[Rfam]
RNA sequence: GCAACCUCAAGCUGGCGCACGGCAACGUGGUGGUGUUCCGCGCGCUGCUGGGCAUCUCGUGGAUGUGGUUCUUCGGCGCCGUGUUCCUGGCCCAGUUCCCCAGCUUCGCCAAGGAAGUUCUG
Numbered sequence: 001g002c003a004a005c006c007u008c009a010a011g012c013u014g015g016c017g018c019a020c021g022g023c024a025a026c027g028u029g030g031u032g033g034u035g036u037u038c039c040g041c042g043c044g045c046u047g048c049u050g051g052g053c054a055u056c057u058c059g060u061g062g063a064u065g066u067g068g069u070u071c072u073u074c075g076g077c078g079c080c081g082u083g084u085u086c087c088u089g090g091c092c093c094a095g096u097u098c099c100c101c102a103g104c105u106u107c108g109c110c111a112a113g114g115a116a117g118u119u120c121u122g
Base pairs, nucleotide, nucleotide: 010049011048012047014045017041018040021037022036023035024034026032051121052120054118055117057115058114060112062110063105067099068098071095072094075091077089078088081086

The record is a 122-nucleotide RNA from Variovorax sp. OV329, which matches "Burkholderia RNA 11" in Rfam. A search with the family's covariance model found it, with a score of 98 bits. Co-purified with Hfq, expression confirmed by Northern blot. Predicted target marZ. Overlaps coding sequence. The base pairs follow the family's consensus structure, which was predicted with RNAfold. It is annotated as a small RNA. For this family Rfam cites "Experimental identification of small non-coding regulatory RNAs in the opportunistic human pathogen Burkholderia cenocepacia J2315" (Ramos et al., Genomics, 2013).